Shown here is a 76-nucleotide RNA from Alligator mississippiensis, a member of the family "Mammalian CPEB3 ribozyme". Taxonomically the source falls in Alligator (Eukaryota, Craniata, Archelosauria, Alligatorinae). Rfam links the family to the GO term RNA nuclease activity.
RNA sequence: AGCUGCAAUUUCAAGGCCACAGCAGAAGUGCUCACAACAUGGCCUGUCAGAUUCCAAGAAAUCUGUGAAUUCUGCU
Numbered sequence: 001a002g003c004u005g006c007a008a009u010u011u012c013a014a015g016g017c018c019a020c021a022g023c024a025g026a027a028g029u030g031c032u033c034a035c036a037a038c039a040u041g042g043c044c045u046g047u048c049a050g051a052u053u054c055c056a057a058g059a060a061a062u063c064u065g066u067g068a069a070u071u072c073u074g075c076u
Base pairs, nucleotide, nucleotide: 015044016043017042018041021076022075023074024073025072026071027070028040029039030038048065049064050063051062052061053060